[Rfam]
RNA sequence: ACUCAGGAGUGCUAGGGUUCCGGCCUUGCCAGUGAUGGCAACGGUGUCUGGUCCGAGAGCGCUCCGGCCCUGUCGAAUUGACGCGGCUCCACGGAGGGAUAAAAGCCCGGGAGAA
Numbered sequence: 001a002c003u004c005a006g007g008a009g010u011g012c013u014a015g016g017g018u019u020c021c022g023g024c025c026u027u028g029c030c031a032g033u034g035a036u037g038g039c040a041a042c043g044g045u046g047u048c049u050g051g052u053c054c055g056a057g058a059g060c061g062c063u064c065c066g067g068c069c070c071u072g073u074c075g076a077a078u079u080g081a082c083g084c085g086g087c088u089c090c091a092c093g094g095a096g097g098g099a100u101a102a103a104a105g106c107c108c109g110g111g112a113g114a115a
Base pairs, nucleotide, nucleotide: 007064008063009062010061011060012059015054016053020051021050022048023045024044025043027041066088067087068086069085071083072082073081090110092113096108097107098106
RNA: Guanidine-I riboswitch aptamer
Organism: Oxalobacteraceae bacterium IMCC9480